Shown here is a 64-nucleotide sequence from Myotis myotis, a member of the family "Selenocysteine insertion sequence 1". The base pairs follow the family's consensus structure, which is taken from published work. Its family is annotated with selenocysteine incorporation in the Gene Ontology. Lineage of the source: Eukaryota > Eumetazoa > Bilateria > Vertebrata > Myotis. From the family's description: The incorporation of selenocysteine into a protein sequence is directed by an in-frame UGA codon (usually a stop codon) within the coding region of the mRNA. Selenoprotein mRNAs contain a conserved secondary structure in the 3' UTR that is required for the distinction of UGA stop from UGA selenocysteine.
RNA sequence: GUUUUAUCCAUGACGGUGUUUCCGCUAAACCUGCAUGGGGGAAUGCCUGAUGUCCAGCUAAAUC
Numbered sequence: 001g002u003u004u005u006a007u008c009c010a011u012g013a014c015g016g017u018g019u020u021u022c023c024g025c026u027a028a029a030c031c032u033g034c035a036u037g038g039g040g041g042a043a044u045g046c047c048u049g050a051u052g053u054c055c056a057g058c059u060a061a062a063u064c
Base pairs, nucleotide, nucleotide: 001064003062004061005060015047016046017045018044019043020042021041022040023039030037